[Rfam]
RNA: mir-3064 microRNA precursor family
Organism: Homo sapiens
RNA sequence: GGUCUGGCUGUUGUGGUGUGCAAAACUCCGUACAUUGCUAUUUUGCCACACUGCAACACCUUACAG
Number, nucleotide and partner (000 for none) at each position: 001g000002g064003u063004c000005u000006g060007g059008c000009u058010g057011u056012u055013g054014u053015g052016g051017u050018g049019u048020g047021c045022a044023a043024a042025a041026c000027u000028c000029c000030g038031u037032a036033c000034a000035u000036u032037g031038c030039u000040a000041u025042u024043u023044u022045g021046c000047c020048a019049c018050a017051c016052u015053g014054c013055a012056a011057c010058a009059c007060c006061u000062u000063a003064c002065a000066g000